[Rfam]
RNA sequence: GCGAGUGUAGUUUAGUGGUAAAAUCCAAGCUUCCCAAGCUUGUGUCGCGGGUCCGAUUCCCGUCACUCGCU
Numbered sequence: 001g002c003g004a005g006u007g008u009a010g011u012u013u014a015g016u017g018g019u020a021a022a023a024u025c026c027a028a029g030c031u032u033c034c035c036a037a038g039c040u041u042g043u044g045u046c047g048c049g050g051g052u053c054c055g056a057u058u059c060c061c062g063u064c065a066c067u068c069g070c071u
Stems, first nucleotide, its partner, number of pairs: 001070007010024004026042005047063005
RNA: tRNA